[Rfam]
RNA sequence: AACUAUCUUAUUUGUAAGUCGCUUUGAAUAAAAGCGUCUGCUAAAUGACUAAGA
Numbered sequence: 001a002a003c004u005a006u007c008u009u010a011u012u013u014g015u016a017a018g019u020c021g022c023u024u025u026g027a028a029u030a031a032a033a034g035c036g037u038c039u040g041c042u043a044a045a046u047g048a049c050u051a052a053g054a
Stems, first nucleotide, its partner, number of pairs: 013043001014041003020036006

UnaL2 LINE 3' element: a 54-nucleotide RNA from Sinocyclocheilus rhinocerous. Taxonomically the source falls in Sinocyclocheilus (Eukaryota, Otophysi, Cypriniphysae, Cyprinidae). Rfam classes the family as a cis-regulatory element. Gene Ontology term of the family: transposition, RNA-mediated. Pairs were carried over by alignment from the consensus structure, which is taken from published work. A reference for the family is Baba et al. (2004), "Solution structure of an RNA stem-loop derived from the 3' conserved region of eel LINE UnaL2", RNA.